This 66-nucleotide RNA sequence from Clostridium sp. DSM 8431 belongs to the Rfam family "RAGATH-18 RNA". Taxonomically the source falls in Clostridium (Bacteria, Bacillati, Bacillota, Clostridia). The family's consensus secondary structure is taken from published work. A search with the family's covariance model found it, with a score of 72 bits. The family's RNA type in Rfam is small RNA. Actinobacteria, Firmicutes, Fusobacteria, Thermotogae (1 example).

[Rfam]
RNA sequence: CCUUUGGACUGUUAUAUCAAAUCAAAGUAGUUCUAUGGAACAAAAUGAGACAGGAUGAAGAAGGAA
Numbered sequence: 001c002c003u004u005u006g007g008a009c010u011g012u013u014a015u016a017u018c019a020a021a022u023c024a025a026a027g028u029a030g031u032u033c034u035a036u037g038g039a040a041c042a043a044a045a046u047g048a049g050a051c052a053g054g055a056u057g058a059a060g061a062a063g064g065a066a
Stems, first nucleotide, its partner, number of pairs: 001064005009053005022048003030041004